M-box riboswitch aptamer (ykoK leader): a 168-nucleotide RNA sequence from Candidatus Enterococcus dunnyi. The organism belongs to Enterococcus, within Bacteria.
RNA sequence: CUGAAUAAUUGUUAGGUGAGGCUCCUAUAUGGACACAGGCUGCUGCCGCGAAAGAAUCGAGAGACUCUUAGUUGGUUGAACAGGAAUGAUCGUGAAGGUCAUUCAUAACGUAGCUGAUAAGAAAUUAUCUACGCCCUAUAGUGCUAAAGCUCAACGAUAGAGAUACUU
Dot-bracket structure: ....((..(((([.(((..(((..(((((.((......(((((.((((.....((.((....)).)).....)))).......(((..(((....])))..))).....))))).(((........)))....)).))))).)))...)))..))...))..))....